A member of the RNA family "Streptomyces sRNA 4677" from Streptomyces monashensis, 245 nucleotides long. It scores 96 bits against the family's covariance model.

[Rfam]
RNA sequence: CAAUCCGGCCCGACGCGUGAUCAAAGCUCUUCCAUGACCGGGGACAAAUACCGAACCGACCAACCCCAGCCACCUCCCCACCGCGUCCAUCGCCCGGAAGAGUGACAUUGCCCAACUCAGUUGGAUUUCCGCCCAGUUCGCUGGCAUAUGCUCGCUGCGAUCACACCGCAGACAUGCGACGGCCCCCGGCCGGGACUGGCAUCCCGAUCGAGGGCCUGACCACCGAGGAAGGUCACAACUUCCCG
Numbered sequence: 001c002a003a004u005c006c007g008g009c010c011c012g013a014c015g016c017g018u019g020a021u022c023a024a025a026g027c028u029c030u031u032c033c034a035u036g037a038c039c040g041g042g043g044a045c046a047a048a049u050a051c052c053g054a055a056c057c058g059a060c061c062a063a064c065c066c067c068a069g070c071c072a073c074c075u076c077c078c079c080a081c082c083g084c085g086u087c088c089a090u091c092g093c094c095c096g097g098a099a100g101a102g103u104g105a106c107a108u109u110g111c112c113c114a115a116c117u118c119a120g121u122u123g124g125a126u127u128u129c130c131g132c133c134c135a136g137u138u139c140g141c142u143g144g145c146a147u148a149u150g151c152u153c154g155c156u157g158c159g160a161u162c163a164c165a166c167c168g169c170a171g172a173c174a175u176g177c178g179a180c181g182g183c184c185c186c187c188g189g190c191c192g193g194g195a196c197u198g199g200c201a202u203c204c205c206g207a208u209c210g211a212g213g214g215c216c217u218g219a220c221c222a223c224c225g226a227g228g229a230a231g232g233u234c235a236c237a238a239c240u241u242c243c244c245g
Base pairs, nucleotide, nucleotide: 007224008223017081018080019079090105091104092103093102095100120156122154123153124152181216182215183214184213185212187210188209192205193204194203195202227243228242229241230240231239
Dot-bracket structure: ......((........(((...........................................................)))........((((.(....).))))..............(.(((...........................))).)........................(((((.((...((((......))))...)).)))))......))..(((((.......)))))..
Rfam's curators write: Located in the intergenic region between anti-sigma factor SCO4677 gene and a putative regulatory protein gene SCO4676. scr4677 expression requires the SCO4677 activity and scr4677 sRNA itself seem to affect the levels of the SCO4676-associated transcripts.
The organism belongs to Streptomyces, within Bacteria.
The base pairs follow the family's consensus structure.